Record summary: Small nucleolar RNA SNORA73 family: a 206-nucleotide sequence from Chinchilla lanigera. By type it is an H/ACA-box small nucleolar RNA. The organism belongs to Chinchilla, within Eukaryota. Rfam describes the family as follows. U17 (SNORA73A and SNORA73B) also known as E1 belongs to the H/ACA class of small nucleolar RNAs (snoRNAs). Vertebrate U17 is intron-encoded and ranges in length from 200-230 nucleotides, longer than most snoRNAs. It is one of the most abundant snoRNAs in human cells and is essential for the cleavage of pre-rRNA within the 5' external transcribed spacer (ETS). This cleavage leads to the formation of 18S rRNA. Regions of the U17 RNA are complementary to rRNA and act as guides for RNA/RNA interactions, although these regions do not seem to be well conserved between organisms.
[Rfam]
RNA sequence: CUAACACACAUACCCUGGUAGGUAAGUAGUGCCAGGCUAUGUCCAAGUGUCAUGGAGGAGCCUAGGACUCCGCCCUAUUGGUGUAUAAUCCUUUUCCACAAUGUUGGAGAUGAACCUGGGCUUUGUGUCCGCGCCUAGGUAUUAACUACAACUUCUCAGAGUUCUGUAUACAGUGACUGAGAGGAUAAACCAUGCAGGAAACAAUG
Number, nucleotide and partner (000 for none) at each position: 001c107002u106003a105004a104005c103006a102007c000008a000009c000010a042011u041012a040013c000014c036015c035016u034017g000018g000019u028020a027021g000022g000023u000024a000025a000026g000027u020028a019029g000030u000031g000032c000033c000034a016035g015036g014037c000038u000039a000040u012041g011042u010043c000044c000045a000046a000047g099048u098049g097050u000051c000052a000053u000054g000055g000056a092057g091058g090059a089060g086061c000062c000063u083064a082065g079066g078067a000068c000069u000070c000071c000072g000073c000074c000075c000076u000077a000078u066079u065080g000081g000082u064083g063084u000085a000086u060087a000088a000089u059090c058091c057092u056093u000094u000095u000096c000097c049098a048099c047100a000101a000102u006103g005104u004105u003106g002107g001108a000109g000110a000111u000112g000113a000114a000115c000116c000117u000118g000119g000120g000121c000122u000123u000124u000125g000126u000127g000128u000129c000130c000131g000132c000133g000134c198135c197136u196137a000138g000139g193140u192141a000142u000143u000144a000145a000146c000147u000148a000149c000150a000151a000152c184153u183154u182155c181156u180157c179158a000159g000160a000161g171162u170163u000164c000165u000166g000167u000168a000169u000170a162171c161172a000173g000174u000175g000176a000177c000178u000179g157180a156181g155182a154183g153184g152185a000186u000187a000188a000189a000190c000191c000192a140193u139194g000195c000196a136197g135198g134199a000200a000201a000202c000203a000204a000205u000206g000